[Rfam]
RNA: Proteobacterial sRNA psRNA2
Organism: Massilia sp. Root351
RNA sequence: GGGUUACUCCUUGGCGCUUUCGCGCUGGUUUAAUAAAGAUUCGCACCUCUAUCAAACCGGGUAACCCCACCCUUGGCAAGGCCUUACUGUCAGAUCAGAUUGGAACUACUACAAAUAAGUGGAUUUUCCGGUCCGGUUCAGUCACCAGCUUUUGCGCAAAUCGCACAGAUUAGCACUCACAGGCUAGGCUAUACUGUAU
Numbered sequence: 001g002g003g004u005u006a007c008u009c010c011u012u013g014g015c016g017c018u019u020u021c022g023c024g025c026u027g028g029u030u031u032a033a034u035a036a037a038g039a040u041u042c043g044c045a046c047c048u049c050u051a052u053c054a055a056a057c058c059g060g061g062u063a064a065c066c067c068c069a070c071c072c073u074u075g076g077c078a079a080g081g082c083c084u085u086a087c088u089g090u091c092a093g094a095u096c097a098g099a100u101u102g103g104a105a106c107u108a109c110u111a112c113a114a115a116u117a118a119g120u121g122g123a124u125u126u127u128c129c130g131g132u133c134c135g136g137u138u139c140a141g142u143c144a145c146c147a148g149c150u151u152u153u154g155c156g157c158a159a160a161u162c163g164c165a166c167a168g169a170u171u172a173g174c175a176c177u178c179a180c181a182g183g184c185u186a187g188g189c190u191a192u193a194c195u196g197u198a199u
Base pairs, nucleotide, nucleotide: 001067002066003065004064005063006062007061009060010059014025015024016023017022027058028057029056030055031054033052034051035050037048038047069197070196074147075146076145080143081142083141084140089106090105091103093101094100095099108137109136110135113132167190168189170187171186172185173184174183176182
Dot-bracket structure: (((((((.((...((((....)))).(((((.(((.((........)).))).)))))))))))))).((...(((...((.((....(((.(((...))).).)).(((..(..................)..)))..)))).)))...................((.(((((.(.....)))))).)).....))..